The record is a 92-nucleotide RNA sequence from Pluvianellus socialis, which matches "Small nucleolar RNA SNORD60" in Rfam.

RNA sequence: GGCCGGGGAUGAGCUCUUUUCUAUUUUUCUGACACCUCGUCUGAGGGCGGCGGGCGGCCGUCGCCCCUGCUGACGAUGCGCGGCUGAGGCCC
Numbered sequence: 001g002g003c004c005g006g007g008g009a010u011g012a013g014c015u016c017u018u019u020u021c022u023a024u025u026u027u028u029c030u031g032a033c034a035c036c037u038c039g040u041c042u043g044a045g046g047g048c049g050g051c052g053g054g055c056g057g058c059c060g061u062c063g064c065c066c067c068u069g070c071u072g073a074c075g076a077u078g079c080g081c082g083g084c085u086g087a088g089g090c091c092c
Stems, first nucleotide, its partner, number of pairs: 001091004047064007
Source information: Its Rfam clan is "SNORD60 clan". NCBI's taxonomy places the organism under Eukaryota, Opisthokonta, Dinosauria, Charadriidae, Pluvianellus. The literature on the family includes a 2002 paper in Mol Cell Biol by Galardi et al., "Purified box C/D snoRNPs are able to reproduce site-specific 2'-O-methylation of target RNA in vitro". Gene Ontology terms of the family: RNA processing and nucleolus. It is annotated as a C/D-box small nucleolar RNA.